RNA sequence: UAGAGAGGCAGGACUUAGCUGGCUCUGUGAACAGGUCUUGUGUGUCAAUGUUCACAGUGGCUAAGUUCCACCCCACUG
Numbered sequence: 001u002a003g004a005g006a007g008g009c010a011g012g013a014c015u016u017a018g019c020u021g022g023c024u025c026u027g028u029g030a031a032c033a034g035g036u037c038u039u040g041u042g043u044g045u046c047a048a049u050g051u052u053c054a055c056a057g058u059g060g061c062u063a064a065g066u067u068c069c070a071c072c073c074c075a076c077u078g
Stems, first nucleotide, its partner, number of pairs: 011068010027055007
Dot-bracket structure: ..........((((((((((......(((((((...............)))))))...))))))))))..........
RNA: mir-27 microRNA precursor family
Organism: Xenopus tropicalis